A member of the RNA family "sRNA-Xcc1" from Candidatus Tokpelaia sp., 88 nucleotides long. NCBI's taxonomy places the organism under Bacteria, Pseudomonadota, Alphaproteobacteria, Hyphomicrobiales, Candidatus Tokpelaia. The family's consensus secondary structure was predicted with RNAalifold. The family's RNA type in Rfam is small RNA. The family has 74 seed sequences and 421 matches in Rfam 15.1.
RNA sequence: GGCCGGGUGGAGAAGCCUUAAUAUAAUACCCGCAAGGGAAAUAAGGCUCGGCGUCUUGUUGCGCUAGUUGACACCCGGCUGCCCGUUU
Numbered sequence: 001g002g003c004c005g006g007g008u009g010g011a012g013a014a015g016c017c018u019u020a021a022u023a024u025a026a027u028a029c030c031c032g033c034a035a036g037g038g039a040a041a042u043a044a045g046g047c048u049c050g051g052c053g054u055c056u057u058g059u060u061g062c063g064c065u066a067g068u069u070g071a072c073a074c075c076c077g078g079c080u081g082c083c084c085g086u087u088u
Base pairs, nucleotide, nucleotide: 001080002079003078004077005076006075007074008073009072014048015047016046017045019043020042029038030037031036050065051064052063053062054061